[Rfam]
RNA sequence: GGCUCUAGGGGUAAGGGCAUUGCCUGACGACUUUUCUGGAUGGACACUCCCUCCUAAUGGUGAAUGGAAACUCCCUUUCUCAGUAGCCUCCUUGUAGUUCAUCCCGGUAGCCCAGUGUGAUUGCAGCCGCUGCCACCACCCAGACAGGAAGCCUCCCAGAGC
Numbered sequence: 001g002g003c004u005c006u007a008g009g010g011g012u013a014a015g016g017g018c019a020u021u022g023c024c025u026g027a028c029g030a031c032u033u034u035u036c037u038g039g040a041u042g043g044a045c046a047c048u049c050c051c052u053c054c055u056a057a058u059g060g061u062g063a064a065u066g067g068a069a070a071c072u073c074c075c076u077u078u079c080u081c082a083g084u085a086g087c088c089u090c091c092u093u094g095u096a097g098u099u100c101a102u103c104c105c106g107g108u109a110g111c112c113c114a115g116u117g118u119g120a121u122u123g124c125a126g127c128c129g130c131u132g133c134c135a136c137c138a139c140c141c142a143g144a145c146a147g148g149a150a151g152c153c154u155c156c157c158a159g160a161g162c
Stems, first nucleotide, its partner, number of pairs: 002162004008157004012148001014052004023043001028042002031039002054143002060081001062078003066075002083136001084132004092126006099120001104119001
This 162-nucleotide RNA belongs to the Rfam family "FGF-1 internal ribosome entry site (IRES)". On this family, see Martineau et al., Mol Cell Biol 2004: "Internal Ribosome Entry Site Structural Motifs Conserved among Mammalian Fibroblast Growth Factor 1 Alternatively Spliced mRNAs". The family's consensus secondary structure is taken from published work. Rfam's curators write: This family represents the FGF-1 internal ribosome entry site (IRES). The FGF-1 IRES is present in the 5' UTR of the mRNA and allows cap-independent translation. It is thought that FGF-1 IRES activity is strictly controlled and highly tissue specific. It is one of the family's seed sequences.